[Rfam]
RNA sequence: ACGGCUAUAAGUUAAUGGUAGACUACUUAGCUACCACCUAAGAUGUGUCGAUUCGAAUUCGACUAGCCGUA
Numbered sequence: 001a002c003g004g005c006u007a008u009a010a011g012u013u014a015a016u017g018g019u020a021g022a023c024u025a026c027u028u029a030g031c032u033a034c035c036a037c038c039u040a041a042g043a044u045g046u047g048u049c050g051a052u053u054c055g056a057a058u059u060c061g062a063c064u065a066g067c068c069g070u071a
Stems, first nucleotide, its partner, number of pairs: 001070007010024004026042005047063005

This 71-nucleotide sequence from Aspergillus nidulans belongs to the Rfam family "tRNA". Its Rfam clan is "tRNA clan". Pairs were carried over by alignment from the consensus structure, which is taken from published work. Transfer RNA (tRNA) molecules are approximately 80 nucleotides in length. The source organism's lineage runs through Eukaryota, Pezizomycotina, Eurotiomycetes, Aspergillaceae and Aspergillus subgen. Nidulantes. Its family is annotated with triplet codon-amino acid adaptor activity in the Gene Ontology.